[Rfam]
RNA: Small nucleolar RNA SNORA63
RNA sequence: GUGCAGGAUAAGUUACAAUACAGCUUGUGCAGUACUGUGUUGUCGUUCCCCCUGCAAACAGUCACUUGUUUCCUCGCUAUACCUGUUUGUCAGCACCUUUUGACUACCAGGCACGUAUGGUUUCAGACAA
Numbered sequence: 001g002u003g004c005a006g007g008a009u010a011a012g013u014u015a016c017a018a019u020a021c022a023g024c025u026u027g028u029g030c031a032g033u034a035c036u037g038u039g040u041u042g043u044c045g046u047u048c049c050c051c052c053u054g055c056a057a058a059c060a061g062u063c064a065c066u067u068g069u070u071u072c073c074u075c076g077c078u079a080u081a082c083c084u085g086u087u088u089g090u091c092a093g094c095a096c097c098u099u100u101u102g103a104c105u106a107c108c109a110g111g112c113a114c115g116u117a118u119g120g121u122u123u124c125a126g127a128c129a130a
Base pairs, nucleotide, nucleotide: 003055004054005053006052007051015043016042017041018040019039020038021037022036023035025034082111083110084109085108087106089104090103